Annotation:
Shown here is a 140-nucleotide sequence from Trichechus manatus, a member of the family "U11 spliceosomal RNA". Taxonomically the source falls in Trichechus manatus (Eukaryota, Deuterostomia, Teleostomi, Afrotheria). The base pairs follow the family's consensus structure, which is taken from published work. Rfam links the family to the GO terms mRNA 5'-splice site recognition, pre-mRNA 5'-splice site binding and U11 snRNP. The match comes from Rfam's covariance-model search (63 bits).
RNA sequence: AAAAGGGGCUUCUGUCAUGUGAGUGAAACAAAUAGAAUAGGGCACCUCAGUUGCUUUUCAUGUGGAAUUGUCAUCAAGAGAUUUUGGGGGCAUAAUAUUUGUUUUCAAGGUAGCUGGUGAUUGUUGGUUAUAGCACCCUU
Numbered sequence: 001a002a003a004a005g006g007g008g009c010u011u012c013u014g015u016c017a018u019g020u021g022a023g024u025g026a027a028a029c030a031a032a033u034a035g036a037a038u039a040g041g042g043c044a045c046c047u048c049a050g051u052u053g054c055u056u057u058u059c060a061u062g063u064g065g066a067a068u069u070g071u072c073a074u075c076a077a078g079a080g081a082u083u084u085u086g087g088g089g090g091c092a093u094a095a096u097a098u099u100u101g102u103u104u105u106c107a108a109g110g111u112a113g114c115u116g117g118u119g120a121u122u123g124u125u126g127g128u129u130a131u132a133g134c135a136c137c138c139u140u
Stems, first nucleotide, its partner, number of pairs: 008091005013028001015026003029062002034057003038053003063086007109137003113134004119129004